The record is a 178-nucleotide sequence from Clostridium senegalense, which matches "Lysine riboswitch aptamer" in Rfam.

RNA sequence: UACAUAAAUAGAGGAGCAAAUAAUAGGCUAACAAUUAUGUGAUAAAGUGAAGAACCACUGAUAAUAAUUGUGAAGGGUUUAUUUGCCGAAAGAUUAAAAUUGUUCUUAAAUUUAAUCUUGGGUGUAGAAAGGAUAUUUCUGCAACUGUCAUAAGAUUUUAUGGUGCGCUAUUUGUGUG
Numbered sequence: 001u002a003c004a005u006a007a008a009u010a011g012a013g014g015a016g017c018a019a020a021u022a023a024u025a026g027g028c029u030a031a032c033a034a035u036u037a038u039g040u041g042a043u044a045a046a047g048u049g050a051a052g053a054a055c056c057a058c059u060g061a062u063a064a065u066a067a068u069u070g071u072g073a074a075g076g077g078u079u080u081a082u083u084u085g086c087c088g089a090a091a092g093a094u095u096a097a098a099a100u101u102g103u104u105c106u107u108a109a110a111u112u113u114a115a116u117c118u119u120g121g122g123u124g125u126a127g128a129a130a131g132g133a134u135a136u137u138u139c140u141g142c143a144a145c146u147g148u149c150a151u152a153a154g155a156u157u158u159u160a161u162g163g164u165g166c167g168c169u170a171u172u173u174g175u176g177u178g
Stems, first nucleotide, its partner, number of pairs: 006173006016086008031071008090119009100109002120146002123143008148163006
Background
Taxonomically the source falls in Clostridium (Bacteria, Bacillati, Clostridia, Clostridiaceae).